[Rfam]
RNA sequence: UAAUCAAUUCCAUAAGGUACUCGUAUAUUCUCAGUGAUAUGGUCUGAGCGUCUCUACCCGGUUCCCAUCGAAAGAACCGGACUACGAGUUGAGAAUGUCACGGG
Numbered sequence: 001u002a003a004u005c006a007a008u009u010c011c012a013u014a015a016g017g018u019a020c021u022c023g024u025a026u027a028u029u030c031u032c033a034g035u036g037a038u039a040u041g042g043u044c045u046g047a048g049c050g051u052c053u054c055u056a057c058c059c060g061g062u063u064c065c066c067a068u069c070g071a072a073a074g075a076a077c078c079g080g081a082c083u084a085c086g087a088g089u090u091g092a093g094a095a096u097g098u099c100a101c102g103g104g
Stems, first nucleotide, its partner, number of pairs: 019089007030048005058080007